[Rfam]
RNA: Coronavirus 3' UTR pseudoknot
Organism: Betacoronavirus hongkongense
RNA sequence: ACACUCUCUAUCAGAAUGAAUUCUUGCUGUAAUAACAGAUAGAGUAGGUUGUUACAGACUA
Numbered sequence: 001a002c003a004c005u006c007u008c009u010a011u012c013a014g015a016a017u018g019a020a021u022u023c024u025u026g027c028u029g030u031a032a033u034a035a036c037a038g039a040u041a042g043a044g045u046a047g048g049u050u051g052u053u054a055c056a057g058a059c060u061a
Base pairs, nucleotide, nucleotide: 007043008042009041010040011039012038028056029055030054031053032052033051034050035049036048